[Rfam]
RNA sequence: CCAGUCGGCCGGGCAGCCGCGCCGCGCAUGAGGUCGAAAGGCCGCGCGGUGAGGAAAGUCCGGGCUCCACGGAAACACGGUGCCGGAUAACGUCCGGCGGGGGCGACCCCAGGGAAAGUGCAACAGAGAGCAGACCGCUUCGCCCAGCCUUCACCGGCAGCGGAGUAAGGGUGAAAGGGUGGGGUAAGAGCCCACCGCGCUGCCGGCAACGGCAGCGGCACGGUAAACCCCACCGGGAGCAAGACCGAAUAGGGACGACUUCGGCUCGCGAGCGAUCGCGGGCGGGCCCGUUUCCGGGCCUCGUCGUCCGGGUAGGUCGCGCGAGGCAGGGCGCGAGUCCUGUCCCAGAUGAAUGGCUGCCGCGUUCCCGCACCUCGUGCGGGAGCCAUACAGAACCCGGCUUACAGGCCGGCUGGCAAU
Number, nucleotide and partner (000 for none) at each position: 001c416002c415003a414004g413005u412006c411007g410008g409009c408010c407011g405012g361013g360014c359015a358016g357017c356018c355019g000020c051021g050022c049023c048024g047025c046026g045027c044028a000029u000030g000031a000032g000033g000034u000035c000036g000037a000038a000039a000040g000041g000042c000043c000044g027045c026046g025047c024048g023049g022050u021051g020052a000053g000054g000055a000056a403057a402058g401059u000060c400061c399062g398063g397064g396065c239066u238067c237068c236069a000070c000071g000072g000073a000074a293075a292076c000077a000078c235079g234080g233081u232082g231083c097084c096085g095086g094087a093088u000089a000090a000091c000092g000093u087094c086095c085096g084097g083098c112099g110100g109101g108102g107103g000104c000105g000106a000107c102108c101109c100110c099111a000112g098113g230114g229115a000116a000117a000118g228119u227120g224121c223122a000123a000124c000125a000126g000127a000128g000129a000130g000131c000132a000133g000134a000135c170136c169137g166138c165139u164140u163141c162142g161143c160144c000145c000146a000147g000148c000149c000150u000151u000152c000153a000154c000155c000156g000157g000158c000159a000160g143161c142162g141163g140164a139165g138166u137167a000168a000169g136170g135171g000172u000173g000174a000175a000176a000177g000178g196179g195180u194181g193182g192183g191184g000185u000186a000187a000188g000189a000190g000191c183192c182193c181194a180195c179196c178197g219198c217199g216200c215201u214202g213203c212204c211205g210206g000207c000208a000209a000210c205211g204212g203213c202214a201215g200216c199217g198218g000219c197220a000221c000222g000223g121224u120225a000226a000227a119228c118229c114230c113231c082232a081233c080234c079235g078236g068237g067238a066239g065240c000241a000242a000243g318244a317245c316246c315247g000248a000249a000250u000251a000252g000253g309254g308255a307256c306257g305258a304259c000260u000261u000262c000263g000264g000265c000266u000267c000268g000269c000270g000271a000272g000273c000274g000275a000276u000277c000278g000279c000280g000281g000282g000283c000284g000285g300286g299287c298288c297289c296290g000291u000292u075293u074294c000295c000296g289297g288298g287299c286300c285301u000302c000303g000304u258305c257306g256307u255308c254309c253310g000311g000312g000313u000314a000315g246316g245317u244318c243319g000320c000321g000322c000323g000324a000325g344326g343327c342328a341329g340330g339331g338332c337333g000334c000335g000336a000337g332338u331339c330340c329341u328342g327343u326344c325345c000346c000347a000348g000349a000350u000351g000352a000353a000354u000355g018356g017357c016358u015359g014360c013361c012362g000363c000364g000365u000366u000367c000368c000369c000370g000371c000372a000373c000374c000375u000376c000377g000378u000379g000380c000381g000382g000383g000384a000385g000386c000387c000388a000389u000390a000391c000392a000393g000394a000395a000396c064397c063398c062399g061400g060401c058402u057403u056404a000405c011406a000407g010408g009409c008410c007411g006412g005413c004414u003415g002416g001417c000418a000419a000420u000
RNA: Bacterial RNase P class A
Organism: Pararhizobium mangrovi